RNA sequence: UCGGGGAAUUUGAGGACUUUAGCUUGCAUACUUGGAGGAUUUGAAGAUUUCAACUUGCAUACUCAGGGAAUUUGAAAACUUCAAUC
Numbered sequence: 001u002c003g004g005g006g007a008a009u010u011u012g013a014g015g016a017c018u019u020u021a022g023c024u025u026g027c028a029u030a031c032u033u034g035g036a037g038g039a040u041u042u043g044a045a046g047a048u049u050u051c052a053a054c055u056u057g058c059a060u061a062c063u064c065a066g067g068g069a070a071u072u073u074g075a076a077a078a079c080u081u082c083a084a085u086c
Base pairs, nucleotide, nucleotide: 001084003082004081005080006079009076010075011074012073013072014071017068018067019066020065025059026058027057028056032053033052034051035050036049037048
A member of the RNA family "MIR8024 microRNA precursor family" from Solanum lycopersicum, 86 nucleotides long.
Gene Ontology terms of the family: miRNA-mediated post-transcriptional gene silencing and RISC complex.
A search with the family's covariance model found it, with a score of 78 bits.
The source organism's lineage runs through Eukaryota, Mesangiospermae, asterids, Solanaceae and Solanum subgen. Lycopersicon.